RNA: Glutamine riboswitch aptamer (glnA leader)
Organism: Petrachloros mirabilis
RNA sequence: AACGUUCAUCUUGCUUUAAGUAGCCCUGACUACAUCCAGCGCGCUUGCAGCAAGACGGAAGUAGGGACUCAUCCCGAAGGAACGCGCC
Numbered sequence: 001a002a003c004g005u006u007c008a009u010c011u012u013g014c015u016u017u018a019a020g021u022a023g024c025c026c027u028g029a030c031u032a033c034a035u036c037c038a039g040c041g042c043g044c045u046u047g048c049a050g051c052a053a054g055a056c057g058g059a060a061g062u063a064g065g066g067a068c069u070c071a072u073c074c075c076g077a078a079g080g081a082a083c084g085c086g087c088c
Base pairs, nucleotide, nucleotide: 003084004083005082006081007080009055010054011053012052013051014050015049058085064075065074066073